Annotation:
Small nucleolar RNA SNORA15: a 143-nucleotide RNA sequence from Jaculus jaculus. Rfam's curators write: ACA15 is a member of the H/ACA class of snoRNA that guide the sites of modification of uridines to pseudouridines. Rfam 15.1 lists 974 matches to the family in 624 species. A search with the family's covariance model found it, with a score of 86 bits.
Nucleotides: 143
Stems, first nucleotide, its partner, number of pairs: 001060002004057003014047003019042001073136002076132007089124008099114002
Number, partner (000 for none) and nucleotide at each position: 001060g002059c003000a004057u005056g006055g007000g008000u009000g010000a011000a012000u013000a014047c015046u016045g017000g018000u019042u020000u021000u022000u023000u024000u025000u026000a027000g028000u029000c030000u031000g032000c033000u034000u035000g036000u037000a038000u039000u040000u041000u042019a043000c044000a045016c046015a047014g048000c049000u050000a051000g052000a053000c054000a055006c056005c057004a058000a059002g060001c061000a062000a063000a064000a065000a066000u067000a068000a069000a070000g071000u072000c073136u074135u075000c076132c077131u078130u079129u080128u081127a082126a083000a084000a085000u086000g087000a088000a089124c090123a091122a092121u093120g094119g095118u096117a097000g098000u099114c100113u101000u102000g103000g104000u105000u106000u107000u108000u109000u110000a111000a112000u113100g114099g115000u116000a117096u118095a119094u120093c121092a122091u123090u124089g125000a126082u127081u128080a129079a130078a131077a132076g133000c134000a135074a136073g137000u138000a139000c140000a141000a142000g143000u